Shown here is a 50-nucleotide RNA, a member of the family "Streptococcus sRNA SpF59 (ldcC RNA)". It is annotated as a small RNA. For this family Rfam cites "Control of virulence by small RNAs in Streptococcus pneumoniae" (Mann et al., PLoS Pathog, 2012).
[Rfam]
Nucleotides: 050
Base pairs, nucleotide, nucleotide: 001042002041003040004039005038006019007018008017009016010015
Number, partner (000 for none) and nucleotide at each position: 001042g002041g003040a004039c005038c006019a007018c008017u009016c010015c011000u012000u013000c014000u015010g016009g017008a018007g019006u020000u021000a022000a023000g024000g025000c026000c027000a028000c029000g030000g031000a032000c033000a034000g035000c036000c037000g038005g039004g040003u041002c042001c043000a044000c045000u046000g047000c048000c049000g050000a